[Rfam]
RNA sequence: GGGUGCCACCGCAGUUGCGGCAAGGCAGGUUCAUUCCCGCGCUGGUCGGGCCGCCAGCG
Numbered sequence: 001g002g003g004u005g006c007c008a009c010c011g012c013a014g015u016u017g018c019g020g021c022a023a024g025g026c027a028g029g030u031u032c033a034u035u036c037c038c039g040c041g042c043u044g045g046u047c048g049g050g051c052c053g054c055c056a057g058c059g
Base pairs, nucleotide, nucleotide: 005026006025007024009020010019040059041058042057043056044055045054046053

nhaA-I RNA: a 59-nucleotide sequence from Pseudomonas fulva. Rfam classes the family as a riboswitch. Rfam's curators write: Acidobacteria, Alphaproteobacteria, Betaproteobacteria and Gammaproteobacteria, Verrucomicrobia, cand. division NC10.